[Rfam]
RNA sequence: AAUAUUCAAAUAAUAAGAACUCGUAUAAUAGCAGGGAUAUGGCCUGCAAGUUUCUACCAGCUUACCGUAAACAAGCUGACUAUGGGUGGCGAUGAAGUACUU
Numbered sequence: 001a002a003u004a005u006u007c008a009a010a011u012a013a014u015a016a017g018a019a020c021u022c023g024u025a026u027a028a029u030a031g032c033a034g035g036g037a038u039a040u041g042g043c044c045u046g047c048a049a050g051u052u053u054c055u056a057c058c059a060g061c062u063u064a065c066c067g068u069a070a071a072c073a074a075g076c077u078g079a080c081u082a083u084g085g086g087u088g089g090c091g092a093u094g095a096a097g098u099a100c101u102u
Base pairs, nucleotide, nucleotide: 019087020086021085022084023083024082025081029049031047032046033045034044035043058078059077060076061075062074063073

A member of the RNA family "Purine riboswitch aptamer" from Psychrobacillus psychrotolerans, 102 nucleotides long. NCBI's taxonomy places the organism under Bacteria, Bacillati, Bacillota, Caryophanales, Psychrobacillus. The family's consensus secondary structure is taken from published work.